[Rfam]
RNA sequence: GUAAAUUAUUAGCUCUGAAUUAAAAAACCUAAGGGAAACUAUGGUCUUUUAAUCUGGGUGCUACUGGAAACGGUUGUGCCUCCCGUGUUUGGAAAGGAGAUAUAUUACAUGUUUUU
Numbered sequence: 001g002u003a004a005a006u007u008a009u010u011a012g013c014u015c016u017g018a019a020u021u022a023a024a025a026a027a028c029c030u031a032a033g034g035g036a037a038a039c040u041a042u043g044g045u046c047u048u049u050u051a052a053u054c055u056g057g058g059u060g061c062u063a064c065u066g067g068a069a070a071c072g073g074u075u076g077u078g079c080c081u082c083c084c085g086u087g088u089u090u091g092g093a094a095a096g097g098a099g100a101u102a103u104a105u106u107a108c109a110u111g112u113u114u115u116u
Stems, first nucleotide, its partner, number of pairs: 003110001006107001011101001013099004019053007027045003033040002056081006063074004082092002
Molybdenum/Tungsten riboswitch aptamer (Moco RNA motif): a 116-nucleotide sequence from Clostridium grantii. NCBI's taxonomy places the organism under Bacteria, Bacillati, Bacillota, Clostridia, Clostridium grantii. Pairs were carried over by alignment from the consensus structure, which is taken from published work.